This 117-nucleotide RNA from Synechococcus sp. CBW1002 belongs to the Rfam family "Group II catalytic intron D1-D4-2". Rfam links the family to the GO term Group II intron splicing. Group II introns are found in rRNA, tRNA and mRNA of organelles in fungi, plants and protists, and also in mRNA in bacteria.

RNA sequence: GGGAGUGUGGCCUCCCGGGAUCGGCCUGCAGGGGCUGGUACCAAACCACCCCGUGCUGCUGCGUUCAAAAGACGUGGUGGUGAGCGACGGGGAAACGGCGGACUGGAUCCGUCAGGU
Numbered sequence: 001g002g003g004a005g006u007g008u009g010g011c012c013u014c015c016c017g018g019g020a021u022c023g024g025c026c027u028g029c030a031g032g033g034g035c036u037g038g039u040a041c042c043a044a045a046c047c048a049c050c051c052c053g054u055g056c057u058g059c060u061g062c063g064u065u066c067a068a069a070a071g072a073c074g075u076g077g078u079g080g081u082g083a084g085c086g087a088c089g090g091g092g093a094a095a096c097g098g099c100g101g102a103c104u105g106g107a108u109c110c111g112u113c114a115g116g117u
Stems, first nucleotide, its partner, number of pairs: 001016005017042002020039003024035004047116001049092006055081002058078003062074004097113006